Notes:
The record is a 102-nucleotide RNA sequence from Caenorhabditis brenneri, which matches "mir-36 microRNA precursor family" in Rfam. NCBI's taxonomy places the organism under Eukaryota, Metazoa, Eumetazoa, Protostomia, Caenorhabditis. Rfam 15.1 lists 199 matches to the family in 31 species. The family's consensus secondary structure was predicted with WAR.
[Rfam]
RNA sequence: UAUUCAGGGCUGGAUCGGGCCUGCGCUGGUUUUUGCCGCGGUGAUAUUUCUGAGCAAUGAUUAUCACCGGGUGAAAAUACAGCACAGGCCCUUUCGGUCCUU
Numbered sequence: 001u002a003u004u005c006a007g008g009g010c011u012g013g014a015u016c017g018g019g020c021c022u023g024c025g026c027u028g029g030u031u032u033u034u035g036c037c038g039c040g041g042u043g044a045u046a047u048u049u050c051u052g053a054g055c056a057a058u059g060a061u062u063a064u065c066a067c068c069g070g071g072u073g074a075a076a077a078u079a080c081a082g083c084a085c086a087g088g089c090c091c092u093u094u095c096g097g098u099c100c101u102u
Stems, first nucleotide, its partner, number of pairs: 017091006025083004029078009039069001041067006